RNA: Tryptophan operon leader
RNA sequence: CAAAACUGGUGGUGGCACUUCCCGAUACAGCGGGUGUUGUGAUCGUGCGCGUCUAAAUAACGCAAAGAUUUAUCCAAAAGCCCGCAUCAUUGCGGGCUUUUUUGU
Numbered sequence: 001c002a003a004a005a006c007u008g009g010u011g012g013u014g015g016c017a018c019u020u021c022c023c024g025a026u027a028c029a030g031c032g033g034g035u036g037u038u039g040u041g042a043u044c045g046u047g048c049g050c051g052u053c054u055a056a057a058u059a060a061c062g063c064a065a066a067g068a069u070u071u072a073u074c075c076a077a078a079a080g081c082c083c084g085c086a087u088c089a090u091u092g093c094g095g096g097c098u099u100u101u102u103u104g105u
Base pairs, nucleotide, nucleotide: 009046010045011044012043015040016039017038019036021034022033023032024031079098080097081096082095083094084093085092086091